[Rfam]
RNA sequence: CCUUUGGAGUGUUAUACAAACCAUAGUAGCAUAUGCAAGGUGGGACACGAUGAAAAAGGAA
Numbered sequence: 001c002c003u004u005u006g007g008a009g010u011g012u013u014a015u016a017c018a019a020a021c022c023a024u025a026g027u028a029g030c031a032u033a034u035g036c037a038a039g040g041u042g043g044g045a046c047a048c049g050a051u052g053a054a055a056a057a058g059g060a061a
Stems, first nucleotide, its partner, number of pairs: 001059005009048005021043003029036002
RNA: RAGATH-18 RNA